Overview
Rfam assigns this 141-nucleotide RNA sequence from Saimiri boliviensis to the family "U4 spliceosomal RNA". Lineage of the source: Eukaryota > Deuterostomia > Dipnotetrapodomorpha > Primates > Saimiri boliviensis. The match comes from Rfam's covariance-model search (105 bits). Pairs were carried over by alignment from the consensus structure, which is taken from published work. Rfam classes the family as a spliceosomal small nuclear RNA. A reference for the family is Zwieb (1997), "The uRNA database", Nucleic Acids Res.
RNA sequence: AGCUUUGCACAGUGGCAGUGUGGUAGCCAAUGAGGCUUAUCUGAGGCGCGAUUAUUGCUAAUUGAAAAUUUUUCCCAAUACCCCACCAUGACGACUUGAAAUAUAGUCAGCAUUGGCAAUUUUUGGCAGUCUCUAUGGAGA
Numbered sequence: 001a002g003c004u005u006u007g008c009a010c011a012g013u014g015g016c017a018g019u020g021u022g023g024u025a026g027c028c029a030a031u032g033a034g035g036c037u038u039a040u041c042u043g044a045g046g047c048g049c050g051a052u053u054a055u056u057g058c059u060a061a062u063u064g065a066a067a068a069u070u071u072u073u074c075c076c077a078a079u080a081c082c083c084c085a086c087c088a089u090g091a092c093g094a095c096u097u098g099a100a101a102u103a104u105a106g107u108c109a110g111c112a113u114u115g116g117c118a119a120u121u122u123u124u125g126g127c128a129g130u131c132u133c134u135a136u137g138g139a140g141a
Base pairs, nucleotide, nucleotide: 020052021051023049024048026047027046028045034042035041086116087115088113089112090111093108094107095106096105130141131140132139133138